RNA sequence: GUACUUUGCAUUCUGAAAUUGUGAAACUAUAUAUGCACUGUUCCCUUGGGAACUAUGGACAUAAACGCGCUCGUAAUAAGCGGAUCGGACUCGGGGGCGGUACCCGACGACUCCACCAAAUAUCCCUUUAUUGGAGGGUGGCAUGGGGUCGAAACAGGAUCGACGAACGUCUAAAGGGGUUAGCUUUGUCUCGGUGAGAUACCACCGUUAUCGGUUCGCUAAAGCAUAAUUGCCAAUAACAAUCGUGCUCCGGUAGCUCUCGCAGCGUAAGCUGUUCGAAAUACCGAAACUUAAGCCCUAAUCUCUAGCCAGAUUAGGCGGGGUUCGCAGGCACCUGGCAACAGAAGCCUGCACU
Dot-bracket structure: .......................................(((((....)))))...(((((.....((((((........((..(((...(((((.......)))))(((((((..............................)))))))............))).)).......))))..))..)))))((((..[[.[[[)))).....]]]]].......................................................................................................[[[[..((((((]]]]..........))))))...
Numbered sequence: 001g002u003a004c005u006u007u008g009c010a011u012u013c014u015g016a017a018a019u020u021g022u023g024a025a026a027c028u029a030u031a032u033a034u035g036c037a038c039u040g041u042u043c044c045c046u047u048g049g050g051a052a053c054u055a056u057g058g059a060c061a062u063a064a065a066c067g068c069g070c071u072c073g074u075a076a077u078a079a080g081c082g083g084a085u086c087g088g089a090c091u092c093g094g095g096g097g098c099g100g101u102a103c104c105c106g107a108c109g110a111c112u113c114c115a116c117c118a119a120a121u122a123u124c125c126c127u128u129u130a131u132u133g134g135a136g137g138g139u140g141g142c143a144u145g146g147g148g149u150c151g152a153a154a155c156a157g158g159a160u161c162g163a164c165g166a167a168c169g170u171c172u173a174a175a176g177g178g179g180u181u182a183g184c185u186u187u188g189u190c191u192c193g194g195u196g197a198g199a200u201a202c203c204a205c206c207g208u209u210a211u212c213g214g215u216u217c218g219c220u221a222a223a224g225c226a227u228a229a230u231u232g233c234c235a236a237u238a239a240c241a242a243u244c245g246u247g248c249u250c251c252g253g254u255a256g257c258u259c260u261c262g263c264a265g266c267g268u269a270a271g272c273u274g275u276u277c278g279a280a281a282u283a284c285c286g287a288a289a290c291u292u293a294a295g296c297c298c299u300a301a302u303c304u305c306u307a308g309c310c311a312g313a314u315u316a317g318g319c320g321g322g323g324u325u326c327g328c329a330g331g332c333a334c335c336u337g338g339c340a341a342c343a344g345a346a347g348c349c350u351g352c353a354c355u
Stems, first nucleotide, its partner, number of pairs: 040053005057191005067184002069180004081169002085166003091107005108151007192207004198217002201215003321336004327352006
This 355-nucleotide RNA sequence from Roseovarius albus belongs to the Rfam family "Alphaproteobacteria transfer-messenger RNA". The family's consensus secondary structure is taken from published work. Rfam's curators write: Bacterial tmRNA, also known as 10Sa RNA or SsrA, is named for its dual tRNA and mRNA-like properties. Its role is to liberate the mRNA from a stalled ribosome. To accomplish this part of the tmRNA is used as a reading frame that ends in a translation stop signal. Taxonomically the source falls in Roseovarius (Bacteria, Pseudomonadota, Rhodobacterales, Roseobacteraceae).